[Rfam]
RNA sequence: ACAACGGCUCUUUUAAGAGCCACCACUUUUUAAUUAAGACAUAUUC
Number, nucleotide and partner (000 for none) at each position: 001a000002c000003a000004a000005c000006g021007g020008c019009u018010c017011u016012u000013u000014u000015a000016a011017g010018a009019g008020c007021c006022a000023c000024c000025a000026c000027u000028u000029u000030u000031u000032a000033a000034u000035u000036a000037a000038g000039a000040c000041a000042u000043a000044u000045u000046c000
Rfam assigns this 46-nucleotide RNA from Labrus bergylta to the family "Histone 3' UTR stem-loop". By type it is a cis-regulatory element. For this family Rfam cites "The sequence of the stem and flanking sequences at the 3' end of histone mRNA are critical determinants for the binding of the stem-loop binding protein" (Williams and Marzluff, Nucleic Acids Res, 1995). NCBI's taxonomy places the organism under Eukaryota, Eumetazoa, Gnathostomata, Teleostomi, Labrus.